[Rfam]
RNA sequence: GCGGCCUGCUCGUGAUCGUCUUCUCACCCUUCACGUGGCAGGCAUGACGGAGGCCCCCGCGCGGUCGCAUCGCGCGGGGGCCUCUC
Numbered sequence: 001g002c003g004g005c006c007u008g009c010u011c012g013u014g015a016u017c018g019u020c021u022u023c024u025c026a027c028c029c030u031u032c033a034c035g036u037g038g039c040a041g042g043c044a045u046g047a048c049g050g051a052g053g054c055c056c057c058c059g060c061g062c063g064g065u066c067g068c069a070u071c072g073c074g075c076g077g078g079g080g081c082c083u084c085u086c
Stems, first nucleotide, its partner, number of pairs: 001045001003043001005042006012034004018028001049085015
Background
This 86-nucleotide RNA from Streptomyces luteoverticillatus belongs to the Rfam family "sodF sRNA". Taxonomically the source falls in Streptomyces (Bacteria, Actinomycetota, Kitasatosporales, Streptomycetaceae). It scores 64 bits against the family's covariance model. Rfam classes the family as a small RNA. A reference for the family is Kim et al. (2014), "Inverse regulation of Fe- and Ni-containing SOD genes by a Fur family regulator Nur through small RNA processed from 3'UTR of the sodF mRNA", Nucleic Acids Res. Pairs were carried over by alignment from the consensus structure.